[Rfam]
RNA sequence: UUGCAGUGAUGAGCUAUGAUUGUGUUCUGACCUGGUAUUGCUGUUUCUCUGGGAACAACUCUGACCAGGGCCUGAGGACUUUUAAUCUUCUCUCUGAGCAC
Number, nucleotide and partner (000 for none) at each position: 001u100002u000003g099004c098005a000006g000007u000008g000009a000010u000011g000012a000013g000014c000015u000016a000017u000018g000019a000020u000021u000022g000023u000024g000025u000026u000027c000028u000029g000030a000031c000032c000033u000034g000035g000036u000037a000038u000039u000040g059041c000042u057043g056044u000045u000046u000047c000048u000049c000050u000051g000052g000053g000054a000055a000056c043057a042058a000059c040060u000061c000062u000063g000064a000065c000066c000067a000068g000069g000070g000071c000072c000073u000074g000075a000076g000077g000078a000079c000080u000081u000082u000083u000084a000085a000086u000087c000088u000089u000090c000091u000092c000093u000094c000095u000096g000097a000098g004099c003100a001101c000

Shown here is a 101-nucleotide sequence from Clarias magur, a member of the family "Z30 small nucleolar RNA".
The match comes from Rfam's covariance-model search (72 bits).
On this family, see Galardi et al., Mol Cell Biol 2002: "Purified box C/D snoRNPs are able to reproduce site-specific 2'-O-methylation of target RNA in vitro".
The family's RNA type in Rfam is C/D-box small nucleolar RNA.
Pairs were carried over by alignment from the consensus structure, which was predicted with PFOLD.